[Rfam]
A member of the RNA family "mir-181 microRNA precursor family" from Eleutherodactylus coqui, 82 nucleotides long.

RNA sequence: AGGUCACAAUUAACAUUCAUUGCUGUCGGUGGGUUGAGUUUAAAGAAUAAACUCGCUGAACGAUGAAUGCAACUGUGUCCCC
Numbered sequence: 001a002g003g004u005c006a007c008a009a010u011u012a013a014c015a016u017u018c019a020u021u022g023c024u025g026u027c028g029g030u031g032g033g034u035u036g037a038g039u040u041u042a043a044a045g046a047a048u049a050a051a052c053u054c055g056c057u058g059a060a061c062g063a064u065g066a067a068u069g070c071a072a073c074u075g076u077g078u079c080c081c082c
Stems, first nucleotide, its partner, number of pairs: 002081002005077004014069009026059006033052003